Record summary: The record is a 106-nucleotide sequence, which matches "RAGATH-17 RNA" in Rfam. The base pairs follow the family's consensus structure, which is taken from published work.
[Rfam]
RNA sequence: CAGGAAACUGGUUAAUCGUUUUCCUUGGUAGUAUAGCGGAAACCAUAAAUAAGAAGAACUCUAAGUGCUUGAGUAGAGUUAAAAUAAUUAGACAGGCAAUAUUACA
Numbered sequence: 001c002a003g004g005a006a007a008c009u010g011g012u013u014a015a016u017c018g019u020u021u022u023c024c025u026u027g028g029u030a031g032u033a034u035a036g037c038g039g040a041a042a043c044c045a046u047a048a049a050u051a052a053g054a055a056g057a058a059c060u061c062u063a064a065g066u067g068c069u070u071g072a073g074u075a076g077a078g079u080u081a082a083a084a085u086a087a088u089u090a091g092a093c094a095g096g097c098a099a100u101a102u103u104a105c106a
Base pairs, nucleotide, nucleotide: 002025003024004023005022006021058079059078060077061076062075063074067097068096069095070094